The family of this 186-nucleotide RNA sequence from Acipenser ruthenus is "U2 spliceosomal RNA". On this family, see Zwieb, Nucleic Acids Res 1997: "The uRNA database". It scores 116 bits against the family's covariance model. From the family's description: U2 is a small nuclear RNA (snRNA) component of the spliceosome (involved in pre-mRNA splicing). Complementary binding between U2 snRNA (in an area lying towards the 5' end but 3' to hairpin I) and the branchpoint sequence (BPS) of the intron results the bulging out of an unpaired adenosine, on the BPS, which initiates a nucleophilic attack at the intronic 5' splice site, thus starting the first of two transesterification reactions that mediate splicing. Gene Ontology terms of the family: U2 snRNP, pre-mRNA branch point binding and mRNA branch site recognition. Rfam classes the family as a spliceosomal small nuclear RNA. The organism belongs to Acipenser, within Eukaryota.
[Rfam]
Nucleotides: 186
Base pairs, nucleotide, nucleotide: 001021002020039058040057041056042055043054044053060076061075062074063073064072065071066070107139108138109137110136113133114132119130120129121128122127143178144177145176146175147174149171150170151169152168153167
Number, partner (000 for none) and nucleotide at each position: 001021c002020u003000a004000a005000u006000u007000u008000c009000u010000g011000a012000g013000c014000a015000g016000u017000a018000a019000a020002a021001g022000a023000a024000a025000a026000a027000a028000a029000a030000a031000u032000c033000u034000g035000u036000u037000c038000u039058u040057a041056u042055c043054a044053g045000u046000u047000u048000a049000a050000u051000a052000u053044c054043u055042g056041a057040u058039a059000c060076g061075u062074c063073c064072c065071c066070c067000a068000u069000a070066g071065g072064g073063g074062g075061a076060c077000c078000c079000g080000u081000c082000u083000a084000u085000a086000u087000u088000a089000a090000a091000u092000u093000g094000a095000u096000u097000u098000u099000u100000g101000g102000a103000a104000g105000c106000a107139g108138g109137a110136g111000a112000u113133g114132g115000a116000a117000c118000c119130g120129g121128g122127g123000c124000u125000u126000g127122c128121u129120c130119c131000g132114u133113c134000c135000a136110c137109u138108c139107c140000a141000c142000c143178c144177a145176u146175c147174g148000a149171c150170c151169c152168g153167g154000u155000a156000u157000u158000g159000c160000a161000g162000u163000a164000c165000c166000u167153c168152c169151g170150g171149g172000a173000a174147c175146g176145g177144u178143g179000c180000g181000c182000a183000c184000a185000a186000g